[Rfam]
RNA: Ribosomal protein L20 leader
Organism: Alkalihalobacillus alcalophilus
RNA sequence: CAAAGCAAGCAGAAGCGCCCGCUUCUCACCUGAUUGACGCUCAUUGAGCAGUUGCCAGGUAUGAUGGGAUUCAUGAUUAGUGAAUGUACAAGUGUGGGCGUCUAGCGCCUACACUUUUUUUAUUGC
Numbered sequence: 001c002a003a004a005g006c007a008a009g010c011a012g013a014a015g016c017g018c019c020c021g022c023u024u025c026u027c028a029c030c031u032g033a034u035u036g037a038c039g040c041u042c043a044u045u046g047a048g049c050a051g052u053u054g055c056c057a058g059g060u061a062u063g064a065u066g067g068g069a070u071u072c073a074u075g076a077u078u079a080g081u082g083a084a085u086g087u088a089c090a091a092g093u094g095u096g097g098g099c100g101u102c103u104a105g106c107g108c109c110u111a112c113a114c115u116u117u118u119u120u121u122a123u124u125g126c
Stems, first nucleotide, its partner, number of pairs: 011026006028060003036053003039049002093113009